[Rfam]
RNA sequence: CUUAGUCGUGGUGUACCAAUCCACACUUAUGGUGCCCUGCGGCAAUAAUAAGGAGGAUUUUUUAUCCGGGAGGCUCCCGGUGCGGCAUUGUGGAGACAUGCCGCAAUGCGUCCGCCAAGCCCGGCGGCCGUGAGAAUGCGGUGCGGAGGCAGCGCAGUCAGAGUCCAAACAGUAUGGCA
Number, nucleotide and partner (000 for none) at each position: 001c000002u000003u000004a000005g000006u042007c041008g040009u039010g038011g037012u000013g035014u034015a033016c032017c031018a030019a000020u000021c000022c000023a000024c000025a000026c000027u000028u000029a000030u018031g017032g016033u015034g014035c013036c000037c011038u010039g009040c008041g007042g006043c000044a000045a000046u000047a000048a000049u000050a000051a000052g000053g000054a000055g000056g000057a000058u000059u000060u000061u000062u000063u000064a000065u000066c080067c079068g078069g077070g000071a000072g165073g164074c163075u162076c161077c069078c068079g067080g066081u105082g104083c103084g102085g101086c100087a099088u098089u000090g097091u096092g000093g000094a000095g000096a091097c090098a088099u087100g086101c085102c084103g083104c082105a081106a000107u000108g131109c130110g129111u000112c127113c126114g125115c124116c123117a000118a000119g000120c000121c000122c000123g116124g115125c114126g113127g112128c000129c110130g109131u108132g000133a000134g159135a158136a000137u156138g155139c154140g153141g000142u151143g150144c149145g000146g000147a000148g000149g144150c143151a142152g000153c140154g139155c138156a137157g000158u135159c134160a000161g076162a075163g074164u073165c072166c000167a000168a000169a000170c000171a000172g000173u000174a000175u000176g000177g000178c000179a000